[Rfam]
RNA sequence: AUGACCGUCGCAAGAGAGCUCCCGGUCCGGGGAUCGGGACGCCGAAGGGGCAAGGCGAGAGCCGAAUCUCUCAGGCCAAAGGAUUGCGGCGUGACG
Numbered sequence: 001a002u003g004a005c006c007g008u009c010g011c012a013a014g015a016g017a018g019c020u021c022c023c024g025g026u027c028c029g030g031g032g033a034u035c036g037g038g039a040c041g042c043c044g045a046a047g048g049g050g051c052a053a054g055g056c057g058a059g060a061g062c063c064g065a066a067u068c069u070c071u072c073a074g075g076c077c078a079a080a081g082g083a084u085u086g087c088g089g090c091g092u093g094a095c096g
Stems, first nucleotide, its partner, number of pairs: 006091008020039007041076003044072002048070003054063002
Dot-bracket structure: .....((((((((......(((((((......))))))).(((((..(((...((......))....))))).))).......)))))))).....